[Rfam]
RNA sequence: CAGGGUUUUUUUUAGAAUUUUUCUAGCUGGCUUUCUGGUUUUCACUGGAAAACCCAU
Numbered sequence: 001c002a003g004g005g006u007u008u009u010u011u012u013u014a015g016a017a018u019u020u021u022u023c024u025a026g027c028u029g030g031c032u033u034u035c036u037g038g039u040u041u042u043c044a045c046u047g048g049a050a051a052a053c054c055c056a057u
Base pairs, nucleotide, nucleotide: 029054030053032051033050034049035048036047037046038045039044